Shown here is a 77-nucleotide sequence from Conger conger, a member of the family "Small nucleolar RNA SNORD83". Rfam links the family to the GO terms nucleolus and RNA processing. By type it is a C/D-box small nucleolar RNA. The base pairs follow the family's consensus structure, which was predicted with PFOLD.

RNA sequence: GCCACAUGAUGAAUAUAGAUGGGUUGAGCACUUUUGUGCAAAGAUGACCACUUAUCUAUCACCCUUUUCUGAUGGCU
Numbered sequence: 001g002c003c004a005c006a007u008g009a010u011g012a013a014u015a016u017a018g019a020u021g022g023g024u025u026g027a028g029c030a031c032u033u034u035u036g037u038g039c040a041a042a043g044a045u046g047a048c049c050a051c052u053u054a055u056c057u058a059u060c061a062c063c064c065u066u067u068u069c070u071g072a073u074g075g076c077u
Stems, first nucleotide, its partner, number of pairs: 001076004028039004